[Rfam]
RNA sequence: AUACUCAUGUGAUCGCUGUAUUUAAUACAGAGGAAAGUCCAUGCUCACACAGACUGCGAUGUCUGUAGUGUUCGUGCUUGACGAAAUCAUAAGUCAAGGUAACCAGUAGGUUAACGGCAGGUUUAUUUCCUAAGUCUUAAAAGAUAUGGAAAUAUCCUUGAAAGUGCCACAGUGACGUAGCUGAGAAGGAAACUUCUUGGGUGGAACGAGGUAAACCCCACGAGUGAGCAACCCAAAUAAUGGUAGGGGCAUCCUUUAGUAGGGAAGUUGAACCGAAAAAGGGACAAGUUAUUACUUGUAGAUAGAUGAUCGCAACCGACGUACGAGGUUUGACCACCGUUUGUAGUACAAUGGUACAGAACAUGGCUUAUCGAG
Numbered sequence: 001a002u003a004c005u006c007a008u009g010u011g012a013u014c015g016c017u018g019u020a021u022u023u024a025a026u027a028c029a030g031a032g033g034a035a036a037g038u039c040c041a042u043g044c045u046c047a048c049a050c051a052g053a054c055u056g057c058g059a060u061g062u063c064u065g066u067a068g069u070g071u072u073c074g075u076g077c078u079u080g081a082c083g084a085a086a087u088c089a090u091a092a093g094u095c096a097a098g099g100u101a102a103c104c105a106g107u108a109g110g111u112u113a114a115c116g117g118c119a120g121g122u123u124u125a126u127u128u129c130c131u132a133a134g135u136c137u138u139a140a141a142a143g144a145u146a147u148g149g150a151a152a153u154a155u156c157c158u159u160g161a162a163a164g165u166g167c168c169a170c171a172g173u174g175a176c177g178u179a180g181c182u183g184a185g186a187a188g189g190a191a192a193c194u195u196c197u198u199g200g201g202u203g204g205a206a207c208g209a210g211g212u213a214a215a216c217c218c219c220a221c222g223a224g225u226g227a228g229c230a231a232c233c234c235a236a237a238u239a240a241u242g243g244u245a246g247g248g249g250c251a252u253c254c255u256u257u258a259g260u261a262g263g264g265a266a267g268u269u270g271a272a273c274c275g276a277a278a279a280a281g282g283g284a285c286a287a288g289u290u291a292u293u294a295c296u297u298g299u300a301g302a303u304a305g306a307u308g309a310u311c312g313c314a315a316c317c318g319a320c321g322u323a324c325g326a327g328g329u330u331u332g333a334c335c336a337c338c339g340u341u342u343g344u345a346g347u348a349c350a351a352u353g354g355u356a357c358a359g360a361a362c363a364u365g366g367c368u369u370a371u372c373g374a375g
Base pairs, nucleotide, nucleotide: 004375005374006373007371008314009313010312011311012310013309014308016030017029018028019027020026021025035369036368037367039366040365041364042363043362044228045227046226047225048224049066050065051064052063053062054061072223073222074221075220076219077098078097079096080095081094082093099115100113101112102111103110104109116218117217119158120157121156127151128150129149130148134145135144136143164216165215166212167211168210181200182199183198184197185196186195187194188193232248233247234246252283253282254281255280256279257278284299285298286297287296288295289294316354317353318352321349322348323347324346
Shown here is a 375-nucleotide RNA sequence from Virgibacillus salexigens, a member of the family "Bacterial RNase P class B". Lineage of the source: Bacteria > Bacillota > Bacilli > Caryophanales > Virgibacillus. It scores 310 bits against the family's covariance model. Rfam classes the family as a ribozyme. From the family's description: Ribonuclease P (RNase P) is a ubiquitous endoribonuclease, found in archaea, bacteria and eukarya as well as chloroplasts and mitochondria. On this family, see Frank and Pace, Annu Rev Biochem 1998: "Ribonuclease P: unity and diversity in a tRNA processing ribozyme".